[Rfam]
RNA sequence: UGAUAUUUCUUAAGAGAGAGUCGGUGUGAUCCGGCCGCCGAAGAGGCAAAUCCGAGAUGUGAGGUGUCGCGUGGACGGAUGAAACUUUCAGGCAAAAGGACUGAGAAAUGGAC
Numbered sequence: 001u002g003a004u005a006u007u008u009c010u011u012a013a014g015a016g017a018g019a020g021u022c023g024g025u026g027u028g029a030u031c032c033g034g035c036c037g038c039c040g041a042a043g044a045g046g047c048a049a050a051u052c053c054g055a056g057a058u059g060u061g062a063g064g065u066g067u068c069g070c071g072u073g074g075a076c077g078g079a080u081g082a083a084a085c086u087u088u089c090a091g092g093c094a095a096a097a098g099g100a101c102u103g104a105g106a107a108a109u110g111g112a113c
Stems, first nucleotide, its partner, number of pairs: 006108007020035004037093003040089002044087003050080005
RNA: Glycine riboswitch aptamer